Rfam assigns this 141-nucleotide RNA from Magnetococcus marinus to the family "Group II catalytic intron D1-D4-7". Rfam's curators put it in the seed alignment. The organism belongs to Magnetococcus marinus, within Bacteria. The family has 244 seed sequences and 1,296 matches in Rfam 15.1. A reference for the family is Chu et al. (2001), "Control of branch-site choice by a group II intron", EMBO J. Rfam links the family to the GO term Group II intron splicing. Group II introns are found in rRNA, tRNA and mRNA of organelles in fungi, plants and protists, and also in mRNA in bacteria. The pairing is the family consensus, mapped onto this sequence.

RNA sequence: CCCGAUAUUCUGCUAUCGGUAACCUACCUGGACAUGCAUGGUGAGCAAUCACAUGUGUGAAGCUCCAGGGACAACGGUACUGUCACCUGCCACCAAGCCGUGAGGUAAGGUGGUUACUGCCAGCAUCAGGCGGUUAAGUAU
Numbered sequence: 001c002c003c004g005a006u007a008u009u010c011u012g013c014u015a016u017c018g019g020u021a022a023c024c025u026a027c028c029u030g031g032a033c034a035u036g037c038a039u040g041g042u043g044a045g046c047a048a049u050c051a052c053a054u055g056u057g058u059g060a061a062g063c064u065c066c067a068g069g070g071a072c073a074a075c076g077g078u079a080c081u082g083u084c085a086c087c088u089g090c091c092a093c094c095a096a097g098c099c100g101u102g103a104g105g106u107a108a109g110g111u112g113g114u115u116a117c118u119g120c121c122a123g124c125a126u127c128a129g130g131c132g133g134u135u136a137a138g139u140a141u
Stems, first nucleotide, its partner, number of pairs: 002019006028068005033059008042051003089114003098105002116134006